[Rfam]
RNA sequence: CCAGUCGGCCGGGCGGCCGCUCUUCCCCUCGCGGGGGAGGGAGGAAAGUCCGGGCUCCACGGAACAACGGUGCCGACUAACGGUCGGCGGGGGCGACCCCAGGGACAGUGCCACAGAGAACGAACCGCCGCGGAUGCGUCCGCGGCAAGGGUGAAAAGGUGCGGUAAGAGCGCACCGCGGGACCGGCAACGGGACCGGCAUGGCAAACCCCACCGGGAGCAAAACCAAAUAGGGGCGACGCGGGUUCUUCGCUUCGGCGGAGACCCAGUCCGUUCCGGACCAGUCGCCCGGGUCGGUUGCGCGAGGCGUCCGGCAACGGGCGUCCCAGAUGAAUGGCCGCCGCGUCGGGGGAAACCCCGGCCUUACAGAACCCGGCUUAUAGGCCGACUGGCACU
Numbered sequence: 001c002c003a004g005u006c007g008g009c010c011g012g013g014c015g016g017c018c019g020c021u022c023u024u025c026c027c028c029u030c031g032c033g034g035g036g037g038a039g040g041g042a043g044g045a046a047a048g049u050c051c052g053g054g055c056u057c058c059a060c061g062g063a064a065c066a067a068c069g070g071u072g073c074c075g076a077c078u079a080a081c082g083g084u085c086g087g088c089g090g091g092g093g094c095g096a097c098c099c100c101a102g103g104g105a106c107a108g109u110g111c112c113a114c115a116g117a118g119a120a121c122g123a124a125c126c127g128c129c130g131c132g133g134a135u136g137c138g139u140c141c142g143c144g145g146c147a148a149g150g151g152u153g154a155a156a157a158g159g160u161g162c163g164g165u166a167a168g169a170g171c172g173c174a175c176c177g178c179g180g181g182a183c184c185g186g187c188a189a190c191g192g193g194a195c196c197g198g199c200a201u202g203g204c205a206a207a208c209c210c211c212a213c214c215g216g217g218a219g220c221a222a223a224a225c226c227a228a229a230u231a232g233g234g235g236c237g238a239c240g241c242g243g244g245u246u247c248u249u250c251g252c253u254u255c256g257g258c259g260g261a262g263a264c265c266c267a268g269u270c271c272g273u274u275c276c277g278g279a280c281c282a283g284u285c286g287c288c289c290g291g292g293u294c295g296g297u298u299g300c301g302c303g304a305g306g307c308g309u310c311c312g313g314c315a316a317c318g319g320g321c322g323u324c325c326c327a328g329a330u331g332a333a334u335g336g337c338c339g340c341c342g343c344g345u346c347g348g349g350g351g352a353a354a355c356c357c358c359g360g361c362c363u364u365a366c367a368g369a370a371c372c373c374g375g376c377u378u379a380u381a382g383g384c385c386g387a388c389u390g391g392c393a394c395u
Stems, first nucleotide, its partner, number of pairs: 001391010011380001012341007020041009046378003050375005055219004066273001068215005073087005088102001089100004103210002108208002110204003125150002127146008158176006177199001178197003183192003223298004233289006268280004305324008
Rfam assigns this 395-nucleotide RNA from Prosthecodimorpha hirschii to the family "Bacterial RNase P class A". The match comes from Rfam's covariance-model search (297 bits).